[Rfam]
RNA sequence: CCCAAGCCCGGGCUCUUUCCACUGAGCCACAAGGUCACAGAAGCAGCGUGGCUCAGUGGAAAGAGCAUGGGCUUUGGA
Numbered sequence: 001c002c003c004a005a006g007c008c009c010g011g012g013c014u015c016u017u018u019c020c021a022c023u024g025a026g027c028c029a030c031a032a033g034g035u036c037a038c039a040g041a042a043g044c045a046g047c048g049u050g051g052c053u054c055a056g057u058g059g060a061a062a063g064a065g066c067a068u069g070g071g072c073u074u075u076g077g078a
Stems, first nucleotide, its partner, number of pairs: 002077002005073006012066008022056009
RNA: mir-130 microRNA precursor family
Organism: Ornithorhynchus anatinus